Nucleotides: 600
Stems, first nucleotide, its partner, number of pairs: 001428002003425003009420005019378005024267001027264007034256002040055004064251007076086004089240002092238004099233001100229003103225004110146006116125003127137004152217004157184007188208001191205003195201001272325005283314003288307002293302003337368001342363007384406007431570001433567001436563002442556007451547005457542006467533001572595010
Number, partner (000 for none) and nucleotide at each position: 001428a002427g003425a004424c005423c006000g007000u008000u009420u010419c011418u012417g013416a014000c015000a016000c017000c018000a019378g020377u021376a022375g023374u024267g025000a026000a027264g028263u029262a030261u031260g032259u033258u034256g035255u036000u037000u038000a039000a040055u041054u042053c043052g044000a045000u046000g047000a048000u049000c050000c051000a052043c053042g054041a055040a056000a057000a058000a059000c060000c061000u062000u063000a064251c065250c066249a067248c068247a069246a070245u071000u072000u073000g074000a075000a076086u077085a078084a079083u080000u081000u082000u083079a084078u085077u086076a087000c088000a089240g090239g091000a092238g093237u094236u095235g096000c097000a098000c099233g100229g101228c102227u103225g104224u105223u106222u107000c108000c109000a110146g111145u112144u113143a114142a115141u116125g117124u118123u119000g120000u121000g122000a123118a124117a125116c126000u127137g128136u129135g130134g131000u132000u133000u134130c135129c136128a137127u138000g139000a140000a141115a142114u143113u144112a145111a146110c147000g148000u149000a150000a151000u152217c153216c154215c155214u156000g157184g158183c159182u160181u161180u162179a163178u164000u165000u166000u167000u168000u169000u170000u171000a172000u173000u174000u175000a176000c177000g178163a179162u180161a181160a182159a183158g184157c185000a186000u187000u188208c189000a190000g191205u192204c193203c194000u195201g196000g197000a198000a199000a200000u201195u202000u203193g204192g205191a206000a207000a208188g209000a210000u211000a212000a213000a214155g215154g216153g217152g218000a219000c220000a221000a222106a223105g224104a225103c226000a227102a228101g229100u230000c231000a232000u233099c234000a235095u236094g237093g238092c239090c240089u241000u242000g243000a244000u245070a246069u247068u248067g249066u250065g251064g252000g253000c254000u255035a256034u257000a258033g259032a260031c261030g262029u263028g264027c265000c266000a267024c268000a269000u270000a271000u272325u273324c274323c275322u276321a277000a278000a279000c280000a281000a282000a283314g284313a285312g286000a287000u288307g289306c290000a291000a292000a293302a294301a295300u296000g297000u298000g299000a300295a301294u302293u303000u304000a305000a306289g307288c308000u309000a310000a311000u312285c313284u314283c315000a316000a317000a318000a319000a320000a321276u322275a323274g324273g325272a326000u327000a328000u329000a330000a331000a332000u333000u334000u335000u336000a337368a338000g339000g340000a341000u342363u343362g344361u345360a346359g347358u348357c349000u350000g351000a352000a353000a354000u355000u356000c357348g358347a359346c360345u361344a362343c363342a364000u365000g366000a367000a368337u369000a370000a371000g372000u373000a374023a375022u376021u377020a378019c379000u380000a381000g382000u383000a384406a385405u386404c387403g388402u389401g390400a391000a392000u393000c394000a395000c396000c397000a398000u399000g400390u401389c402388a403387c404386g405385g406384u407000g408000a409000a410000u411000a412000g413000a414000c415000c416013u417012u418011g419010g420009a421000u422000u423005g424004g425003u426000a427002c428001u429000a430000a431570c432000c433567a434000c435000u436563c437562g438000u439000c440000a441000c442556a443555u444554g445553c446552u447551g448550a449000a450000a451547g452546g453545g454544g455543c456000a457542u458541g459540c460539g461538c462537a463000a464000u465000a466000a467533g468000u469000u470000u471000g472000c473000u474000u475000u476000c477000u478000u479000a480000g481000u482000a483000a484000c485000a486000a487000g488000u489000a490000a491000a492000a493000a494000a495000a496000a497000c498000a499000a500000a501000u502000a503000g504000g505000u506000u507000u508000u509000a510000u511000a512000u513000a514000u515000u516000c517000u518000u519000u520000u521000a522000u523000u524000g525000g526000g527000a528000a529000u530000c531000u532000u533467c534000g535000u536000a537462u538461g539460c540459g541458u542457g543455g544454c545453u546452c547451u548000a549000a550448u551447u552446a553445g554444u555443g556442u557000u558000a559000a560000g561000u562437c563436g564000a565000a566000a567433u568000a569000c570431g571000g572595u573594u574593c575592g576591c577590g578589u579588a580587g581586u582000g583000g584000a585000a586581g587580u588579u589578g590577c591576g592575c593574g594573g595572g596000a597000u598000u599000a600000a
The family of this 600-nucleotide part of an RNA is "Bacterial small subunit ribosomal RNA". Clan: SSU clan. Its family is annotated with structural constituent of ribosome and ribosome in the Gene Ontology.